[Rfam]
RNA sequence: GGAAUAUAAGAACCUGUCUCUUAUUUUUUAACUAAAAAAGCUAAGAAUUGGCUCUUAAAUAAGAAUUUUAAAAGACGGUUCUUAGCUUUUUUAGUUAAAAGUUAAAAGACGGGUUCUUAUAUUCC
Numbered sequence: 001g002g003a004a005u006a007u008a009a010g011a012a013c014c015u016g017u018c019u020c021u022u023a024u025u026u027u028u029u030a031a032c033u034a035a036a037a038a039a040g041c042u043a044a045g046a047a048u049u050g051g052c053u054c055u056u057a058a059a060u061a062a063g064a065a066u067u068u069u070a071a072a073a074g075a076c077g078g079u080u081c082u083u084a085g086c087u088u089u090u091u092u093a094g095u096u097a098a099a100a101g102u103u104a105a106a107a108g109a110c111g112g113g114u115u116c117u118u119a120u121a122u123u124c125c
Base pairs, nucleotide, nucleotide: 001125002124003123004122005121006120007119008118009117010116011115012114013113014112015111016110017109018108019107021105022104023103025101026100027099028098029097030096031095032094033093034092035091036090037089038088039087041085042084043083044082045081046080047079
The record is a 125-nucleotide RNA from Brassica carinata, which matches "MIR9563 microRNA precursor family" in Rfam. A search with the family's covariance model found it, with a score of 119 bits.